[Rfam]
RNA sequence: GGGUCCGGAGGUCACCGCCCGACAGCGCGUUGCGCCCUCGGGCGCGAUCUG
Numbered sequence: 001g002g003g004u005c006c007g008g009a010g011g012u013c014a015c016c017g018c019c020c021g022a023c024a025g026c027g028c029g030u031u032g033c034g035c036c037c038u039c040g041g042g043c044g045c046g047a048u049c050u051g
Stems, first nucleotide, its partner, number of pairs: 016044007025035004
A member of the RNA family "ffh sRNA" from Xanthobacter versatilis, 51 nucleotides long. Lineage of the source: Bacteria > Pseudomonadota > Hyphomicrobiales > Xanthobacteraceae > Xanthobacter. Rfam's curators put it in the seed alignment.